[Rfam]
RNA sequence: GUAGAGGACCAACGUGCUACCAUGUAAAGCAACUUCAGACCAUAGUAAUAAGGAAUAAUAUGAAAAAUUGAAAUAUUAUGGUUUGAAGAUGGUUUACAUGGUAGUACGUUGGUCCUUUAC
Numbered sequence: 001g002u003a004g005a006g007g008a009c010c011a012a013c014g015u016g017c018u019a020c021c022a023u024g025u026a027a028a029g030c031a032a033c034u035u036c037a038g039a040c041c042a043u044a045g046u047a048a049u050a051a052g053g054a055a056u057a058a059u060a061u062g063a064a065a066a067a068u069u070g071a072a073a074u075a076u077u078a079u080g081g082u083u084u085g086a087a088g089a090u091g092g093u094u095u096a097c098a099u100g101g102u103a104g105u106a107c108g109u110u111g112g113u114c115c116u117u118u119a120c
Stems, first nucleotide, its partner, number of pairs: 001120028030091002033088015
Dot-bracket structure: ((((((((((((((((((((((((((((.((.(((((((((((((((..........................))))))))))))))).)).))))))))))))))))))))))))))))
Shown here is a 120-nucleotide sequence from Drosophila pseudoobscura, a member of the family "mir-2513 microRNA precursor family".
Gene Ontology terms of the family: RISC complex and miRNA-mediated post-transcriptional gene silencing.
The base pairs follow the family's consensus structure, which was predicted with RNAalifold.
Rfam's curators put it in the seed alignment.